[Rfam]
RNA sequence: UCGGCCCCGGUUCACGUGACGCCCACUCGGGUGUACGACCCGGCGCC
Numbered sequence: 001u002c003g004g005c006c007c008c009g010g011u012u013c014a015c016g017u018g019a020c021g022c023c024c025a026c027u028c029g030g031g032u033g034u035a036c037g038a039c040c041c042g043g044c045g046c047c
Base pairs, nucleotide, nucleotide: 003047004046005045007043008042009041010040015037016036017035018034020033021032022031023030
The family of this 47-nucleotide RNA sequence from Embleya scabrispora is "L31-Actinobacteria ribosomal protein leader".